RNA sequence: GAUCAUAUUUAUCACCUCUCUAUGAUCGCGGCUG
Number, nucleotide and partner (000 for none) at each position: 001g027002a026003u025004c024005a023006u022007a021008u000009u000010u000011a000012u000013c000014a000015c000016c000017u000018c000019u000020c000021u007022a006023u005024g004025a003026u002027c001028g000029c000030g000031g000032c000033u000034g000
The record is a 34-nucleotide RNA, which matches "S4-Bacteroidia ribosomal protein leader" in Rfam. The base pairs follow the family's consensus structure, which is taken from published work. It is annotated as a cis-regulatory leader.